Shown here is a 331-nucleotide RNA sequence from Oceanirhabdus seepicola, a member of the family "Bacterial RNase P class A". Rfam classes the family as a ribozyme. It scores 287 bits against the family's covariance model. The family's consensus secondary structure is taken from published work. Taxonomically the source falls in Oceanirhabdus (Bacteria, Bacillota, Eubacteriales, Clostridiaceae).
RNA sequence: CAGACAAUCGCUGCUAUAAAAUAUUAUAGGAGAGGAAAGUCCGGGCUCCAUAGGGCAGGGUGCUGGGUAAUACCCAGUGGAGGCAACUCUAAGGAAAGUGCAACAGAAAUAAACCGCCACUUUAAGUGGUAAGGAUGGAACGGUGAGGUAAGAGCUCACCAGCACAUAGGCGACUAUGUGGCUAUGUAAACCCCACCUGGUGCAAGAUCGAAGGGAGACAUAUGGGACGGCCCGUCCUGUCUUCAGGUGUAUCGCUUGAGUUUAUUGGUAACGAUAAACCUAGAUAGAUGAUUGUCUAAUACAGAACUCGGCUUAUAGACUUGGUCGCACA
Number, nucleotide and partner (000 for none) at each position: 001c318002a316003g296004a295005c294006a293007a292008u291009c290010g000011c032012u031013g000014c029015u028016a027017u026018a025019a024020a000021a000022u000023a000024u019025u018026a017027u016028a015029g014030g000031a012032g011033a000034g000035g000036a000037a314038a313039g312040u000041c311042c310043g309044g308045g307046c202047u000048c200049c199050a000051u000052a000053g233054g232055g231056c230057a000058g198059g197060g196061u195062g194063c077064u076065g075066g074067g073068u000069a000070a000071u000072a000073c067074c066075c065076a064077g063078u092079g090080g089081a088082g087083g000084c000085a000086a000087c082088u081089c080090u079091a000092a078093g193094g192095a000096a000097a000098g191099u190100g187101c186102a185103a000104c000105a000106g000107a000108a000109a000110u000111a000112a000113a000114c134115c133116g130117c129118c128119a127120c126121u125122u000123u000124a000125a121126g120127u119128g118129g117130u116131a000132a000133g115134g114135a000136u000137g000138g000139a000140a000141c000142g160143g159144u158145g157146a156147g155148g000149u000150a000151a000152g000153a000154g000155c147156u146157c145158a144159c143160c142161a000162g182163c180164a179165c178166a177167u176168a175169g174170g000171c000172g000173a000174c169175u168176a167177u166178g165179u164180g163181g000182c162183u000184a000185u102186g101187u100188a000189a000190a099191c098192c094193c093194c062195a061196c060197c059198u058199g049200g048201u000202g046203c000204a000205a000206g253207a252208u251209c000210g000211a000212a000213g000214g244215g243216a242217g241218a240219c239220a000221u000222a000223u000224g238225g237226g236227a235228c234229g000230g056231c055232c054233c053234g228235u227236c226237c225238u224239g219240u218241c217242u216243u215244c214245a000246g000247g000248u000249g000250u000251a208252u207253c206254g000255c000256u000257u000258g000259a000260g279261u278262u277263u276264a275265u274266u273267g272268g000269u000270a000271a000272c267273g266274a265275u264276a263277a262278a261279c260280c000281u000282a000283g000284a000285u000286a000287g000288a000289u000290g009291a008292u007293u006294g005295u004296c003297u000298a000299a000300u000301a000302c000303a000304g000305a000306a000307c045308u044309c043310g042311g041312c039313u038314u037315a000316u002317a000318g001319a000320c000321u000322u000323g000324g000325u000326c000327g000328c000329a000330c000331a000